[Rfam]
RNA sequence: GAAUGAAGGAAAUAGGGUAAUAUGCACAGAAAUUGAUUUGGAUUUCUAGAUUUGGGUUUCUAGGCCUGCCCUGAUGCCUUUUGGCUUUGAUUUGGGGCAUGGUUCCGCAAGAAAAUG
Numbered sequence: 001g002a003a004u005g006a007a008g009g010a011a012a013u014a015g016g017g018u019a020a021u022a023u024g025c026a027c028a029g030a031a032a033u034u035g036a037u038u039u040g041g042a043u044u045u046c047u048a049g050a051u052u053u054g055g056g057u058u059u060c061u062a063g064g065c066c067u068g069c070c071c072u073g074a075u076g077c078c079u080u081u082u083g084g085c086u087u088u089g090a091u092u093u094g095g096g097g098c099a100u101g102g103u104u105c106c107g108c109a110a111g112a113a114a115a116u117g
Base pairs, nucleotide, nucleotide: 013024014023054100056098057097058096064091066089068085069084070083
Description
The family of this 117-nucleotide RNA sequence from Rhododendron williamsianum is "Small nucleolar RNA snoR100". It scores 52 bits against the family's covariance model. A reference for the family is Marker et al. (2002), "Experimental RNomics: identification of 140 candidates for small non-messenger RNAs in the plant Arabidopsis thaliana", Curr Biol. It is annotated as an H/ACA-box small nucleolar RNA. Taxonomically the source falls in Rhododendron (Eukaryota, Viridiplantae, Spermatophyta, Ericales).